[Rfam]
Nucleotides: 123
Stems, first nucleotide, its partner, number of pairs: 011026006028060003036053003039049002088110003092106006
Number, partner (000 for none) and nucleotide at each position: 001000a002000a003000u004000g005000a006000c007000a008000a009000g010000u011026a012025g013024a014023g015022g016021c017000a018000c019000c020000c021016g022015c023014u024013u025012c026011u027000c028060a029059c030058c031000u032000g033000a034000u035000u036053g037052a038051c039049g040048c041000u042000a043000a044000u045000g046000u047000a048040g049039c050000a051038g052037u053036u054000g055000g056000c057000a058030g059029g060028u061000u062000a063000c064000a065000a066000u067000u068000c069000u070000g071000a072000u073000u074000a075000a076000a077000u078000a079000c080000a081000g082000g083000a084000u085000a086000u087000g088110u089109g090108u091000g092106g093105g094104u095103g096102c097101a098000g099000u100000g101097u102096g103095u104094a105093c106092c107000g108090a109089c110088a111000c112000u113000u114000u115000u116000u117000u118000u119000a120000u121000g122000c123000u
The family of this 123-nucleotide RNA from Aquibacillus koreensis is "Ribosomal protein L20 leader". Its family is annotated with regulation of gene expression in the Gene Ontology. The family's consensus secondary structure was predicted with CMfinder. It is annotated as a cis-regulatory leader. The literature on the family includes a 1994 paper in Prog Nucleic Acid Res Mol Biol by Zengel and Lindahl, "Diverse mechanisms for regulating ribosomal protein synthesis in Escherichia coli". Rfam's curators write: This family is a putative r-protein leader autoregulatory structure found in B. subtilis and other low-GC Gram-positive bacteria. It is located in the 5' untranslated regions of mRNAs encoding initiation factor 3 followed by ribosomal proteins L35 and L20 (infC-rpmI-rplT). A Rho-independent transcription terminator structure that is probably involved in regulation is included at the 3' end. NCBI's taxonomy places the organism under Bacteria, Bacillati, Bacilli, Caryophanales, Aquibacillus.